[Rfam]
RNA sequence: AAAAAUGUUUUCUAGGGUUCCGCACAUCAAAUGCUGGUCUGGUCCGAGAGAAAACACACAGUGAAUUACUGUGUCACGGAGGGAUAAAAGCCCGGGAGAA
Numbered sequence: 001a002a003a004a005a006u007g008u009u010u011u012c013u014a015g016g017g018u019u020c021c022g023c024a025c026a027u028c029a030a031a032u033g034c035u036g037g038u039c040u041g042g043u044c045c046g047a048g049a050g051a052a053a054a055c056a057c058a059c060a061g062u063g064a065a066u067u068a069c070u071g072u073g074u075c076a077c078g079g080a081g082g083g084a085u086a087a088a089a090g091c092c093c094g095g096g097a098g099a100a
Stems, first nucleotide, its partner, number of pairs: 007055006015045002020042002022039001023036002057073006075095001077098001081093003